Source information
The family of this 40-nucleotide RNA from Jatropha curcas is "Plastid-rpl16 group II-D1 intron". Rfam links the family to the GO term Group II intron splicing.
RNA sequence: CUCGAGUCAAUAAAGACUAAGUAGAUUGACUCAAAGACAA
Numbered sequence: 001c002u003c004g005a006g007u008c009a010a011u012a013a014a015g016a017c018u019a020a021g022u023a024g025a026u027u028g029a030c031u032c033a034a035a036g037a038c039a040a
Stems, first nucleotide, its partner, number of pairs: 002034001004032008

About the family: Plastid-rpl16 is a non-coding RNA (ncRNA) recognised in plastids. It was recognised in and intronic region of a ribosome rpl16 gene. The family's consensus secondary structure was predicted with LocARNA.